[Rfam]
Source information
The family of this 128-nucleotide RNA sequence from Edolisoma coerulescens is "Small nucleolar RNA SNORA69".
RNA sequence: AAAGCAGGCUGCAAUUGCAGCGCUUCCUGCUGUGGGAGUGCUGCCAUUUUCCUGCUGAGAGCAACUCUGUUAAUACUGUCUGUGUUUUCACCCCCUGGUGAAAGCAUUUGUUCUUAACAUGGACAAAU
Numbered sequence: 001a002a003a004g005c006a007g008g009c010u011g012c013a014a015u016u017g018c019a020g021c022g023c024u025u026c027c028u029g030c031u032g033u034g035g036g037a038g039u040g041c042u043g044c045c046a047u048u049u050u051c052c053u054g055c056u057g058a059g060a061g062c063a064a065c066u067c068u069g070u071u072a073a074u075a076c077u078g079u080c081u082g083u084g085u086u087u088u089c090a091c092c093c094c095c096u097g098g099u100g101a102a103a104g105c106a107u108u109u110g111u112u113c114u115u116a117a118c119a120u121g122g123a124c125a126a127a128u
Stems, first nucleotide, its partner, number of pairs: 003056006018043009065122002068119006075112001081106002085104008
From the family's description: U69 is a member of the H/ACA class of small nucleolar RNAs (snoRNAs) which act as guides in the the modification of uridines to pseudouridines. The family's consensus secondary structure was predicted with PFOLD. Gene Ontology terms of the family: nucleolus and RNA processing. A search with the family's covariance model found it, with a score of 82 bits.